Shown here is a 173-nucleotide RNA from Gaoshiqia sediminis, a member of the family "Group II catalytic intron D1-D4-3". Group II introns are found in rRNA, tRNA and mRNA of organelles in fungi, plants and protists, and also in mRNA in bacteria.
[Rfam]
RNA sequence: UUUACCGUGAGGUAUGCACUGAAGGAAGUCAAACGGCAAAAUCCGGUACUGACGAACAGAAACCUGAUAUGAGGCUAUUAAACGAGGAUAAGCAAGCACAUCAUUGUAACGUCCGGUGAACACCCAAAUCGUUUUAUAGUAGAUCAGGCAGGCAUUGGAGGAAGGGAAAAGCU
Numbered sequence: 001u002u003u004a005c006c007g008u009g010a011g012g013u014a015u016g017c018a019c020u021g022a023a024g025g026a027a028g029u030c031a032a033a034c035g036g037c038a039a040a041a042u043c044c045g046g047u048a049c050u051g052a053c054g055a056a057c058a059g060a061a062a063c064c065u066g067a068u069a070u071g072a073g074g075c076u077a078u079u080a081a082a083c084g085a086g087g088a089u090a091a092g093c094a095a096g097c098a099c100a101u102c103a104u105u106g107u108a109a110c111g112u113c114c115g116g117u118g119a120a121c122a123c124c125c126a127a128a129u130c131g132u133u134u135u136a137u138a139g140u141a142g143a144u145c146a147g148g149c150a151g152g153c154a155u156u157g158g159a160g161g162a163a164g165g166g167a168a169a170a171g172c173u
Base pairs, nucleotide, nucleotide: 001016003014004013005012006011028173030171037165042159043158044157045156046155049151050150051149063148064147065146066145067144068143074140075139076138078136080134081133082132083131084130085129086114087113088112089111092107093106094105095104